[Rfam]
RNA sequence: AAGUGUUGCAGCUCUUCUGGAAUUUGUCUAGCAGGUUUUCCAGUCCUCACCGGAAGACCCAA
Numbered sequence: 001a002a003g004u005g006u007u008g009c010a011g012c013u014c015u016u017c018u019g020g021a022a023u024u025u026g027u028c029u030a031g032c033a034g035g036u037u038u039u040c041c042a043g044u045c046c047u048c049a050c051c052g053g054a055a056g057a058c059c060c061a062a
Base pairs, nucleotide, nucleotide: 034059035058036057037056038055039054040053041052043050044049
RNA: U7 small nuclear RNA